[Rfam]
RNA sequence: GCGUCAACGUUAGCUCAUUGGUUACUUCACAGCAUCAACUUACCUGUAAGUUCGAGCCUGUCGCACCGUGGGCGCUGCUUGACGUUUUU
Numbered sequence: 001g002c003g004u005c006a007a008c009g010u011u012a013g014c015u016c017a018u019u020g021g022u023u024a025c026u027u028c029a030c031a032g033c034a035u036c037a038a039c040u041u042a043c044c045u046g047u048a049a050g051u052u053c054g055a056g057c058c059u060g061u062c063g064c065a066c067c068g069u070g071g072g073c074g075c076u077g078c079u080u081g082a083c084g085u086u087u088u089u
Base pairs, nucleotide, nucleotide: 002084003083004082005081006080007079013073014072015071016070019068020067021066026056027055028054